A member of the RNA family "Purine riboswitch aptamer" from Halanaerobacter jeridensis, 102 nucleotides long. The family's consensus secondary structure is taken from published work. The organism belongs to Halanaerobacter, within Bacteria.

Nucleotides: 102
Base pairs, nucleotide, nucleotide: 018088019087020086021085022084023083024082025081031047032046033045034044035043058078059077060076061075062074063073064072
Number, partner (000 for none) and nucleotide at each position: 001000u002000u003000a004000a005000a006000u007000a008000a009000a010000u011000g012000a013000c014000c015000a016000u017000a018088a019087u020086u021085c022084c023083g024082u025081a026000u027000a028000a029000c030000c031047c032046c033045a034044g035043g036000g037000a038000u039000a040000g041000g042000g043035c044034c045033u046032g047031g048000a049000a050000g051000u052000u053000u054000c055000u056000a057000c058078c059077g060076a061075c062074u063073a064072g065000c066000c067000g068000u069000a070000a071000a072064c073063u074062a075061g076060u077059c078058g079000a080000c081025u082024a083023c084022g085021g086020g087019a088018u089000a090000g091000u092000a093000u094000a095000a096000a097000g098000a099000a100000a101000g102000a